This 162-nucleotide RNA sequence from Rhodococcoides kyotonense belongs to the Rfam family "c-di-AMP riboswitch aptamer (ydaO/yuaA leader)".
Taxonomically the source falls in Rhodococcoides (Bacteria, Actinomycetota, Actinomycetes, Nocardiaceae).
Gene Ontology terms of the family: regulation of gene expression and cyclic-di-AMP binding.
RNA sequence: CGCAAGUCACCGCCUAAUCGGGACCUCGUGAGAGCCCCGAACCGGGAACCCGAUUUCCACUGGGGUGAAUCCCGCCGAAUCGCUACCGCGUGCCGGUGGGUAGGGCUGAUCUUCCCAGCCCGAACCCGUCAGCUAACUCGGUCGGCGGAUGAGUGGAAGAAA
Numbered sequence: 001c002g003c004a005a006g007u008c009a010c011c012g013c014c015u016a017a018u019c020g021g022g023a024c025c026u027c028g029u030g031a032g033a034g035c036c037c038c039g040a041a042c043c044g045g046g047a048a049c050c051c052g053a054u055u056u057c058c059a060c061u062g063g064g065g066u067g068a069a070u071c072c073c074g075c076c077g078a079a080u081c082g083c084u085a086c087c088g089c090g091u092g093c094c095g096g097u098g099g100g101u102a103g104g105g106c107u108g109a110u111c112u113u114c115c116c117a118g119c120c121c122g123a124a125c126c127c128g129u130c131a132g133c134u135a136a137c138u139c140g141g142u143c144g145g146c147g148g149a150u151g152a153g154u155g156g157a158a159g160a161a162a
Base pairs, nucleotide, nucleotide: 011147012146013145014144018040019039020038021037022036041142042141043140044139045138046137051062052061063127064126065125071100072099073098074097075096076095077094103121104120105119106118